[Rfam]
RNA sequence: ACUAUUCAUUGGUAAAACUACGGAAACGUAGUGGCGCAAAGCUAGAGAGGCUUCGGCAAUCACGAUUGUCAUGCCAGCCAGUUGCCGAA
Numbered sequence: 001a002c003u004a005u006u007c008a009u010u011g012g013u014a015a016a017a018c019u020a021c022g023g024a025a026a027c028g029u030a031g032u033g034g035c036g037c038a039a040a041g042c043u044a045g046a047g048a049g050g051c052u053u054c055g056g057c058a059a060u061c062a063c064g065a066u067u068g069u070c071a072u073g074c075c076a077g078c079c080a081g082u083u084g085c086c087g088a089a
Stems, first nucleotide, its partner, number of pairs: 012037002017032006040083004047079001049075003056069004